The family of this 135-nucleotide sequence from Paenibacillus sp. FSL H7-0331 is "c-di-AMP riboswitch aptamer (ydaO/yuaA leader)". NCBI's taxonomy places the organism under Bacteria, Bacillati, Bacillota, Caryophanales, Paenibacillus. Pairs were carried over by alignment from the consensus structure.
[Rfam]
RNA sequence: ACAAAAUUCAGGCCGAAGCUUCUAAUAGAGGCAUGGGGGAACCUAUUAUUUGGGGUGAAGCCAUAUUCAUGGCAGGGUCCUUACUCUUUGAUCCGAACCCGUCAGCUAACCUCAUAGGCCGCAAAAAGAGAGGAU
Numbered sequence: 001a002c003a004a005a006a007u008u009c010a011g012g013c014c015g016a017a018g019c020u021u022c023u024a025a026u027a028g029a030g031g032c033a034u035g036g037g038g039g040a041a042c043c044u045a046u047u048a049u050u051u052g053g054g055g056u057g058a059a060g061c062c063a064u065a066u067u068c069a070u071g072g073c074a075g076g077g078u079c080c081u082u083a084c085u086c087u088u089u090g091a092u093c094c095g096a097a098c099c100c101g102u103c104a105g106c107u108a109a110c111c112u113c114a115u116a117g118g119c120c121g122c123a124a125a126a127a128g129a130g131a132g133g134a135u
Stems, first nucleotide, its partner, number of pairs: 011120004018032003033115006043052001053100003061072004075094004
Dot-bracket structure: ..........((((...(((.........)))((((((....(........)(((.....((((....))))..((((............))))...))).........)))))).))))...............